[Rfam]
RNA sequence: GAAGUCAACCCUAAGAACUACUAACCAACCAGAACCCUAAUGGAAGCUUAGAAAUAAGCAAGAGUACAAUGGACUAUACAACGGUCAACCAAGUAUUUAUACUUAGGUCAGGUGAAGGAUAUGGGUUGCCUACUAAAUAAGAAAUACGAAUAAGUAGGAGUAGUUCUUU
Numbered sequence: 001g002a003a004g005u006c007a008a009c010c011c012u013a014a015g016a017a018c019u020a021c022u023a024a025c026c027a028a029c030c031a032g033a034a035c036c037c038u039a040a041u042g043g044a045a046g047c048u049u050a051g052a053a054a055u056a057a058g059c060a061a062g063a064g065u066a067c068a069a070u071g072g073a074c075u076a077u078a079c080a081a082c083g084g085u086c087a088a089c090c091a092a093g094u095a096u097u098u099a100u101a102c103u104u105a106g107g108u109c110a111g112g113u114g115a116a117g118g119a120u121a122u123g124g125g126u127u128g129c130c131u132a133c134u135a136a137a138u139a140a141g142a143a144a145u146a147c148g149a150a151u152a153a154g155u156a157g158g159a160g161u162a163g164u165u166c167u168u169u
Stems, first nucleotide, its partner, number of pairs: 013168009026128005041068002046059004072086004088108003091104004129158006

RAGATH-9 RNA: a 169-nucleotide RNA from Snuvovirus hominis. On this family, see Weinberg et al., Nat Chem Biol 2015: "New classes of self-cleaving ribozymes revealed by comparative genomics analysis". The family's consensus secondary structure is taken from published work.